[Rfam]
RNA sequence: UCCAUCGCGAGAUGGGAUCUGAAGGAAGCCGGAUGUGGGAACAGACUUAACCACGGGCAAACCUCUGGCCUGAUGAAGAGAAACCACAUAUAAGGUCACGCAUGAGGAUAAGACUGAAAUACAAGCCAAAGUCCAAUAACUACACAGAAUUAUGCGGGAUAGAUGUGGCAGGUAGAUGGAGGGAAAGAAACGUGU
Number, nucleotide and partner (000 for none) at each position: 001u016002c015003c014004a013005u012006c011007g000008c000009g000010a000011g006012a005013u004014g003015g002016g001017a000018u000019c000020u000021g000022a000023a000024g000025g000026a000027a000028g000029c000030c000031g000032g000033a000034u000035g000036u000037g000038g000039g000040a000041a000042c000043a000044g000045a000046c000047u000048u000049a000050a000051c000052c194053a193054c192055g000056g000057g000058c187059a000060a000061a000062c182063c181064u180065c179066u178067g177068g173069c172070c171071u170072g169073a000074u000075g000076a000077a000078g000079a000080g000081a000082a000083a000084c168085c167086a166087c165088a164089u163090a000091u000092a000093a000094g000095g160096u159097c158098a000099c156100g155101c154102a153103u152104g151105a150106g134107g133108a132109u131110a000111a000112g127113a000114c125115u124116g000117a000118a000119a000120u000121a000122c000123a000124a115125g114126c000127c112128a000129a000130a000131g109132u108133c107134c106135a000136a000137u000138a000139a000140c000141u000142a000143c000144a000145c000146a000147g000148a000149a000150u105151u104152a103153u102154g101155c100156g099157g000158g097159a096160u095161a000162g000163a089164u088165g087166u086167g085168g084169c072170a071171g070172g069173u068174a000175g000176a000177u067178g066179g065180a064181g063182g062183g000184a000185a000186a000187g058188a000189a000190a000191c000192g054193u053194g052195u000
A member of the RNA family "Group II catalytic intron D1-D4-3" from Clostridium sp. SY8519, 195 nucleotides long. Rfam 15.1 lists 4,274 matches to the family in 1,585 species. Lineage of the source: Bacteria > Bacillati > Bacillota > Clostridia > Clostridium. Group II introns are found in rRNA, tRNA and mRNA of organelles in fungi, plants and protists, and also in mRNA in bacteria.